[Rfam]
RNA sequence: ACCAUCCUGUUCUUGGGGUAGCACUACUGUCCAAUGAAUAAGUAGCAAGGGCAGUACUGCUAACGCCUACACAACACGCUCACAUCAACUAGAGCUUUGUUUUACUUUGGUGCAAUUUUUGGAAAA
Numbered sequence: 001a002c003c004a005u006c007c008u009g010u011u012c013u014u015g016g017g018g019u020a021g022c023a024c025u026a027c028u029g030u031c032c033a034a035u036g037a038a039u040a041a042g043u044a045g046c047a048a049g050g051g052c053a054g055u056a057c058u059g060c061u062a063a064c065g066c067c068u069a070c071a072c073a074a075c076a077c078g079c080u081c082a083c084a085u086c087a088a089c090u091a092g093a094g095c096u097u098u099g100u101u102u103u104a105c106u107u108u109g110g111u112g113c114a115a116u117u118u119u120u121g122g123a124a125a126a
Stems, first nucleotide, its partner, number of pairs: 006018003021060003026055007039045001083112005090104006
Source information
A member of the RNA family "U4atac minor spliceosomal RNA" from Propithecus coquereli, 126 nucleotides long. A reference for the family is Shukla et al. (2002), "Domains of human U4atac snRNA required for U12-dependent splicing in vivo", Nucleic Acids Res. The source organism's lineage runs through Eukaryota, Metazoa, Gnathostomata, Euarchontoglires and Propithecus. A search with the family's covariance model found it, with a score of 97 bits. U4atac is an essential component of the minor U12-type spliceosome complex which is required for removal of the rarer class of eukaryotic introns (AT-AC, U12-type). The family is grouped with related families in Rfam's "U4 clan". By type it is a spliceosomal small nuclear RNA.